[Rfam]
RNA sequence: GCCGCCGUAGACCAACGGCAGAGUCAGUAGUUCGAGAAGCUAUCAAGUGCCGGUUCGAAUCCGGCCGGCGGCA
Numbered sequence: 001g002c003c004g005c006c007g008u009a010g011a012c013c014a015a016c017g018g019c020a021g022a023g024u025c026a027g028u029a030g031u032u033c034g035a036g037a038a039g040c041u042a043u044c045a046a047g048u049g050c051c052g053g054u055u056c057g058a059a060u061c062c063g064g065c066c067g068g069c070g071g072c073a
Stems, first nucleotide, its partner, number of pairs: 001072007010025003027043005049065005
Record summary: tRNA: a 73-nucleotide RNA from a Kofleriaceae bacterium. From the family's description: Transfer RNA (tRNA) molecules are approximately 80 nucleotides in length. Pairs were carried over by alignment from the consensus structure, which is taken from published work.